[Rfam]
RNA: FMN riboswitch aptamer (RFN element)
RNA sequence: GCAUAUUCUCAGGGCGGGGCGCAAUUCCCCACCGGCGGUAUGUCCCGAUGGGAUAAGCCCGCGAGCGCAAGGGGUUUUCCCUUGGUCAGCAGAUCAGGUGCGAUGCCUGAGCCGACGGUCAUAGUCCGGAUGAAAGAGAAUAGUG
Numbered sequence: 001g002c003a004u005a006u007u008c009u010c011a012g013g014g015c016g017g018g019g020c021g022c023a024a025u026u027c028c029c030c031a032c033c034g035g036c037g038g039u040a041u042g043u044c045c046c047g048a049u050g051g052g053a054u055a056a057g058c059c060c061g062c063g064a065g066c067g068c069a070a071g072g073g074g075u076u077u078u079c080c081c082u083u084g085g086u087c088a089g090c091a092g093a094u095c096a097g098g099u100g101c102g103a104u105g106c107c108u109g110a111g112c113c114g115a116c117g118g119u120c121a122u123a124g125u126c127c128g129g130a131u132g133a134a135a136g137a138g139a140a141u142a143g144u145g
Stems, first nucleotide, its partner, number of pairs: 004142007017029003031125002033114002035062004057112002065090002094110005116128003
Dot-bracket structure: ...(((((((......(((.......))).[[((((((..................[[))))..((......................))...(((((.......)))))]])).(((.....]]))).......)))))))...